[Rfam]
Glycine riboswitch aptamer: a 102-nucleotide sequence from Streptomonospora litoralis.
RNA sequence: CGAGACCACUCUGGAAAGCAGGGGUUCUCCGGAACCCCUCGCCGAAGGUGCAAGCCGCGCCCGCGCGGCGAAGCUCUCAGGCACCAUGACAGAGGGGGAGGA
Numbered sequence: 001c002g003a004g005a006c007c008a009c010u011c012u013g014g015a016a017a018g019c020a021g022g023g024g025u026u027c028u029c030c031g032g033a034a035c036c037c038c039u040c041g042c043c044g045a046a047g048g049u050g051c052a053a054g055c056c057g058c059g060c061c062c063g064c065g066c067g068g069c070g071a072a073g074c075u076c077u078c079a080g081g082c083a084c085c086a087u088g089a090c091a092g093a094g095g096g097g098g099a100g101g102a
Stems, first nucleotide, its partner, number of pairs: 006097002009094005020039007041082003044078002048076001050074001054069004